[Rfam]
The record is a 46-nucleotide RNA sequence from Aedes aegypti, which matches "Histone 3' UTR stem-loop" in Rfam. Gene Ontology term of the family: mRNA 3'-end processing by stem-loop binding and cleavage.
Nucleotides: 046
Base pairs, nucleotide, nucleotide: 006021007020008019009018010017011016
Number, partner (000 for none) and nucleotide at each position: 001000a002000a003000a004000a005000c006021g007020g008019c009018c010017c011016u012000u013000u014000u015000c016011a017010g018009g019008g020007c021006c022000a023000c024000u025000a026000g027000a028000g029000c030000a031000u032000u033000c034000c035000c036000u037000a038000a039000a040000a041000g042000a043000g044000u045000u046000g